A member of the RNA family "mir-196 microRNA precursor family" from Erpornis zantholeuca, 76 nucleotides long. Its family is annotated with RISC complex and gene silencing by miRNA in the Gene Ontology. The literature on the family includes a 2003 paper in RNA by Lagos-Quintana et al., "New microRNAs from mouse and human".

[Rfam]
RNA sequence: UCUGUGGAUUAGGUAGUUUCAUGUUGUUGGGCUCUUGGUUUCACACGCGACAACAUCAAACUCCCUGAUUUACUCC
Numbered sequence: 001u002c003u004g005u006g007g008a009u010u011a012g013g014u015a016g017u018u019u020c021a022u023g024u025u026g027u028u029g030g031g032c033u034c035u036u037g038g039u040u041u042c043a044c045a046c047g048c049g050a051c052a053a054c055a056u057c058a059a060a061c062u063c064c065c066u067g068a069u070u071u072a073c074u075c076c
Base pairs, nucleotide, nucleotide: 004073005072006071007070008069009068010067011066012065013064015062016061017060018059019058022055023054024053025052026051027050028049029048031046